Description
The family of this 158-nucleotide RNA from Glycine max is "MIR4371 microRNA precursor family". Pairs were carried over by alignment from the consensus structure, which was predicted with RNAalifold.
RNA sequence: CGGUUAAGUGAUGACGUGGCAAACAGAGUGUCACACCAUCAUGUACAAUCAUUGACACGUCAUUGUCACGUCAUUGAAGGUGAUGAUGUGGCAAUAAGAUGUCUGUGACAAGGCGUAAUGAUAUGUCACUCUAUCUGUCACGUCAUCACUUAAUGGAA
Numbered sequence: 001c002g003g004u005u006a007a008g009u010g011a012u013g014a015c016g017u018g019g020c021a022a023a024c025a026g027a028g029u030g031u032c033a034c035a036c037c038a039u040c041a042u043g044u045a046c047a048a049u050c051a052u053u054g055a056c057a058c059g060u061c062a063u064u065g066u067c068a069c070g071u072c073a074u075u076g077a078a079g080g081u082g083a084u085g086a087u088g089u090g091g092c093a094a095u096a097a098g099a100u101g102u103c104u105g106u107g108a109c110a111a112g113g114c115g116u117a118a119u120g121a122u123a124u125g126u127c128a129c130u131c132u133a134u135c136u137g138u139c140a141c142g143u144c145a146u147c148a149c150u151u152a153a154u155g156g157a158a
Stems, first nucleotide, its partner, number of pairs: 001156001003154019023134001025132006032125002035122001037120003041116004049108004054103004070087005
Dot-bracket structure: (.(((((((((((((((((((.(.((((((.((.(.(((.((((....((((.((((............(((((........)))))............)))).))))....)))).))).).)).)))))).).))))))))))))))))))).)..